[Rfam]
RNA sequence: GCAUUGUACCCAGGGUCUGACUGCAGACAUUGCACCUGGAGC
Numbered sequence: 001g002c003a004u005u006g007u008a009c010c011c012a013g014g015g016u017c018u019g020a021c022u023g024c025a026g027a028c029a030u031u032g033c034a035c036c037u038g039g040a041g042c
Stems, first nucleotide, its partner, number of pairs: 001042002010039004015028005